The family of this 61-nucleotide RNA sequence from Polynucleobacter asymbioticus is "Betaproteobacteria toxic small RNA".
RNA sequence: UGUCUCCUCCACCCAAACAUAGGUGGAUUCCAACCCAGGACUCGUUCCUGGGUUUUUUUUG
Numbered sequence: 001u002g003u004c005u006c007c008u009c010c011a012c013c014c015a016a017a018c019a020u021a022g023g024u025g026g027a028u029u030c031c032a033a034c035c036c037a038g039g040a041c042u043c044g045u046u047c048c049u050g051g052g053u054u055u056u057u058u059u060u061g
Stems, first nucleotide, its partner, number of pairs: 008027006015020001032054008

It scores 52 bits against the family's covariance model. About the family: Overexpression in amino aid rich medium attenuates growth, suggesting role in repressing amino acid intake and metabolism. The literature on the family includes a 2012 paper in Genome Res by Kimelman et al., "A vast collection of microbial genes that are toxic to bacteria". The family has 51 seed sequences and 951 matches in Rfam 15.1. The family's consensus secondary structure was predicted with WAR. The source organism's lineage runs through Bacteria, Pseudomonadota, Burkholderiales, Polynucleobacter and Polynucleobacter asymbioticus.